[Rfam]
RNA sequence: ACCAGUGGCAUCUGCUGGCUCUCAGAUGCACCUCCCUGUUGGACUUGGCCCGGAUCUUUUGGUCCGGGUUCUUUUU
Numbered sequence: 001a002c003c004a005g006u007g008g009c010a011u012c013u014g015c016u017g018g019c020u021c022u023c024a025g026a027u028g029c030a031c032c033u034c035c036c037u038g039u040u041g042g043a044c045u046u047g048g049c050c051c052g053g054a055u056c057u058u059u060u061g062g063u064c065c066g067g068g069u070u071c072u073u074u075u076u
Stems, first nucleotide, its partner, number of pairs: 008029007047070010
Shown here is a 76-nucleotide sequence from Thalassobacter sp. 16PALIMAR09, a member of the family "Singlet oxygen resistance RNA X". Taxonomically the source falls in Thalassobacter (Bacteria, Pseudomonadati, Alphaproteobacteria, Roseobacteraceae). Rfam links the family to the GO term response to photooxidative stress. From the family's description: SorX (RSs2461)like SorY is a singlet oxygen induced sRNA that counteracts oxidative stress by targeting mRNA for a transporter in Rhodobacter. It also has an impact on resistance against organic hydroperoxides. It targets SD sequence of potA mRNA via an aSD sequence. The family's RNA type in Rfam is small RNA.